Rfam assigns this 103-nucleotide sequence from Vibrio caribbeanicus to the family "TPP riboswitch aptamer (THI element)". The base pairs follow the family's consensus structure, which is taken from published work. Lineage of the source: Bacteria > Pseudomonadati > Gammaproteobacteria > Vibrionales > Vibrio caribbeanicus.

[Rfam]
RNA sequence: UCGUCAUAGUCGGGGAGCCUCAAAGAUACAGGCUGAGAUCGUCAAGAGACCCGUUGAACCUGAUUCAGUUAAUACUGGCGUAGGGAACUAUGGAUUUUAGUGU
Numbered sequence: 001u002c003g004u005c006a007u008a009g010u011c012g013g014g015g016a017g018c019c020u021c022a023a024a025g026a027u028a029c030a031g032g033c034u035g036a037g038a039u040c041g042u043c044a045a046g047a048g049a050c051c052c053g054u055u056g057a058a059c060c061u062g063a064u065u066c067a068g069u070u071a072a073u074a075c076u077g078g079c080g081u082a083g084g085g086a087a088c089u090a091u092g093g094a095u096u097u098u099a100g101u102g103u
Stems, first nucleotide, its partner, number of pairs: 006091005011053004017033004040046001059084004065078004